[Rfam]
RNA sequence: GAGUGCCGCCGGAGUGCCGCAGAUGUGCGGGCCGAUGAAAGGCGGUUCCCCGGCUUUU
Numbered sequence: 001g002a003g004u005g006c007c008g009c010c011g012g013a014g015u016g017c018c019g020c021a022g023a024u025g026u027g028c029g030g031g032c033c034g035a036u037g038a039a040a041g042g043c044g045g046u047u048c049c050c051c052g053g054c055u056u057u058u
Stems, first nucleotide, its partner, number of pairs: 005046006017030005
The family of this 58-nucleotide sequence from Pyrobaculum calidifontis is "Pyrobaculum sRNA 204".
By type it is an H/ACA-box small nucleolar RNA.
Gene Ontology term of the family: RNA processing.
Rfam describes the family as follows. Non canonical pseudouridylation guide sRNA features. Predicted to target 23S U2023 in Pyrobaculum.
It is one of the family's seed sequences.
The base pairs follow the family's consensus structure.